[Rfam]
RNA: rpsB sRNA
Organism: Nitratireductor aestuarii
RNA sequence: CACACGCGGGCUUUUGGUAUUUGGCAGGGAGAAAUCCUGUCAACACCACCGGUGGCAACGAGAGUUGCCUUGCAGUCCGCGGAGGUUCAACCGGAAAGGAAGAUAAAA
Numbered sequence: 001c002a003c004a005c006g007c008g009g010g011c012u013u014u015u016g017g018u019a020u021u022u023g024g025c026a027g028g029g030a031g032a033a034a035u036c037c038u039g040u041c042a043a044c045a046c047c048a049c050c051g052g053u054g055g056c057a058a059c060g061a062g063a064g065u066u067g068c069c070u071u072g073c074a075g076u077c078c079g080c081g082g083a084g085g086u087u088c089a090a091c092c093g094g095a096a097a098g099g100a101a102g103a104u105a106a107a108a
Base pairs, nucleotide, nucleotide: 001084003082005081006080007079008078009077010076011075016047017046025039026038028037054069055068056067057066058065059064